[Rfam]
RNA sequence: UGCCGGUCGUCCAUAGACCGGGGUUACUGAAGAGGCACACCUUCAUUGCCGGCAGUGCGGAGCGGGUUUCCCAAUCCAAGCCAAGGCAGACAAAGCGAGCUUCAGCCGCGAAGGCUUUUGCUCAUCGCCGUGUGGUCACGCGUUCAUGGUUCCGGUGUCUC
Numbered sequence: 001u002g003c004c005g006g007u008c009g010u011c012c013a014u015a016g017a018c019c020g021g022g023g024u025u026a027c028u029g030a031a032g033a034g035g036c037a038c039a040c041c042u043u044c045a046u047u048g049c050c051g052g053c054a055g056u057g058c059g060g061a062g063c064g065g066g067u068u069u070c071c072c073a074a075u076c077c078a079a080g081c082c083a084a085g086g087c088a089g090a091c092a093a094a095g096c097g098a099g100c101u102u103c104a105g106c107c108g109c110g111a112a113g114g115c116u117u118u119u120g121c122u123c124a125u126c127g128c129c130g131u132g133u134g135g136u137c138a139c140g141c142g143u144u145c146a147u148g149g150u151u152c153c154g155g156u157g158u159c160u161c
Base pairs, nucleotide, nucleotide: 001023003021004020005019006018007017008016034050035049036048037047057141058140059139081089098122099121100120

Rfam assigns this 161-nucleotide RNA sequence from Mesorhizobium sp. L-8-10 to the family "speF leader". Rfam links the family to the GO term regulation of gene expression. Lineage of the source: Bacteria > Pseudomonadati > Pseudomonadota > Alphaproteobacteria > Mesorhizobium. About the family: This family is a putative regulatory RNA structure that is found upstream of the speF gene encoding ornithine decarboxylase in Agrobacterium tumefaciens and other alpha-proteobacteria. It is annotated as a cis-regulatory leader. The match comes from Rfam's covariance-model search (90 bits).